[Rfam]
RNA sequence: GGAGCCACAGGGAGGGAUCCCAAUCCAGCCUUAGGAAAAGAAAACUGCCAUGGGAUUCUUGGAGAUUGGCGACCAUUCUAAUGACUUC
Numbered sequence: 001g002g003a004g005c006c007a008c009a010g011g012g013a014g015g016g017a018u019c020c021c022a023a024u025c026c027a028g029c030c031u032u033a034g035g036a037a038a039a040g041a042a043a044a045c046u047g048c049c050a051u052g053g054g055a056u057u058c059u060u061g062g063a064g065a066u067u068g069g070c071g072a073c074c075a076u077u078c079u080a081a082u083g084a085c086u087u088c
Stems, first nucleotide, its partner, number of pairs: 002087003006083002010079004015074002018071001020069006029062002038060004045053003
RNA: mir-9014 microRNA precursor family
Organism: Equus asinus